[Rfam]
RNA sequence: UAUGCAGGUAGAGGUGCGGGCAACAAGAGUACUUUCAGGAAGAGUGGUGCUGAUGAUCUGAAAGGAAAGGGUUGACUGCCGAAGUGCGGCAUGAUACCGGAUCGGUCGCACUGGUUUUGCAUUAAACAGGUGCAAAACUGUCACCAAAUUUUUUUGGUGGAGCGCUAUCUCAUCA
Dot-bracket structure: .....((((((....((((.((((.......((((((((.................))))))))......)))).))))...((((((((..(........)..))))))))(((((((((((.....))))))))))).(((((((......)))))))....)))))).....
Numbered sequence: 001u002a003u004g005c006a007g008g009u010a011g012a013g014g015u016g017c018g019g020g021c022a023a024c025a026a027g028a029g030u031a032c033u034u035u036c037a038g039g040a041a042g043a044g045u046g047g048u049g050c051u052g053a054u055g056a057u058c059u060g061a062a063a064g065g066a067a068a069g070g071g072u073u074g075a076c077u078g079c080c081g082a083a084g085u086g087c088g089g090c091a092u093g094a095u096a097c098c099g100g101a102u103c104g105g106u107c108g109c110a111c112u113g114g115u116u117u118u119g120c121a122u123u124a125a126a127c128a129g130g131u132g133c134a135a136a137a138c139u140g141u142c143a144c145c146a147a148a149u150u151u152u153u154u155u156g157g158u159g160g161a162g163c164g165c166u167a168u169c170u171c172a173u174c175a
Stems, first nucleotide, its partner, number of pairs: 006170006016079004021074004032064008083112008093102001113139011141160007
The record is a 175-nucleotide RNA sequence from Acetonema longum, which matches "Lysine riboswitch aptamer" in Rfam.
It scores 128 bits against the family's covariance model.
The organism belongs to Acetonema longum, within Bacteria.
Its family is annotated with lysine biosynthetic process in the Gene Ontology.